The family of this 265-nucleotide RNA from Thermovenabulum gondwanense is "Bacterial large signal recognition particle RNA". The match comes from Rfam's covariance-model search (219 bits). Taxonomically the source falls in Thermovenabulum (Bacteria, Bacillati, Thermosediminibacterales, Thermosediminibacteraceae). Its Rfam clan is "SRP clan". Rfam's curators write: The signal recognition particle (SRP) is a universally conserved ribonucleoprotein involved in the co-translational targeting of proteins to membranes. Rfam classes the family as a non-coding RNA gene. On this family, see Regalia et al., Nucleic Acids Res 2002: "Prediction of signal recognition particle RNA genes".

RNA sequence: CCGUGCUAGACGGGGAGGUAGCGGUGCCCUGCACCCACAAUCCGCUGCAGUGGGGUUGAAUCCCUUCCCGAGGUUUUAUCCCUGUGGGGUCCGGCCGGGACAAGUGGCAAAGAAGGUUGGGUCCCGCGCAAUGGGAACUUCCGAACCCCGCCAGGUCCGGGAGGAAGCAACGGUAAGGAAGCACUUCCAUGUGCCGCGGGGCAGCCUGACCGGAGUUAACUAUCCCGGUAUCGCCCGGAGGGAAAAAUCGACGGAAGGUGCACGG
Numbered sequence: 001c002c003g004u005g006c007u008a009g010a011c012g013g014g015g016a017g018g019u020a021g022c023g024g025u026g027c028c029c030u031g032c033a034c035c036c037a038c039a040a041u042c043c044g045c046u047g048c049a050g051u052g053g054g055g056u057u058g059a060a061u062c063c064c065u066u067c068c069c070g071a072g073g074u075u076u077u078a079u080c081c082c083u084g085u086g087g088g089g090u091c092c093g094g095c096c097g098g099g100a101c102a103a104g105u106g107g108c109a110a111a112g113a114a115g116g117u118u119g120g121g122u123c124c125c126g127c128g129c130a131a132u133g134g135g136a137a138c139u140u141c142c143g144a145a146c147c148c149c150g151c152c153a154g155g156u157c158c159g160g161g162a163g164g165a166a167g168c169a170a171c172g173g174u175a176a177g178g179a180a181g182c183a184c185u186u187c188c189a190u191g192u193g194c195c196g197c198g199g200g201g202c203a204g205c206c207u208g209a210c211c212g213g214a215g216u217u218a219a220c221u222a223u224c225c226c227g228g229u230a231u232c233g234c235c236c237g238g239a240g241g242g243a244a245a246a247a248u249c250g251a252c253g254g255a256a257g258g259u260g261c262a263c264g265g
Stems, first nucleotide, its partner, number of pairs: 001265006009057003012030004017025001019023001034054005063258006072249005079243005085237004092233002096227005104220002106217003115211008123200006129191002132189005138181005148173003156165003